A member of the RNA family "Small nucleolar RNA SNORD18" from Trifolium pratense, 75 nucleotides long.
Rfam 15.1 lists 2,622 matches to the family in 960 species.
Clan: SNORD18 clan.
The family's consensus secondary structure was predicted with PFOLD.
RNA sequence: GAGACAUGAUGAUGUUUACAUUGGUCCGUGUUUCUGAAUUACUGUGACAGACAACCUUUUCCAAUUUCUGAUCUC
Numbered sequence: 001g002a003g004a005c006a007u008g009a010u011g012a013u014g015u016u017u018a019c020a021u022u023g024g025u026c027c028g029u030g031u032u033u034c035u036g037a038a039u040u041a042c043u044g045u046g047a048c049a050g051a052c053a054a055c056c057u058u059u060u061c062c063a064a065u066u067u068c069u070g071a072u073c074u075c
Stems, first nucleotide, its partner, number of pairs: 001075004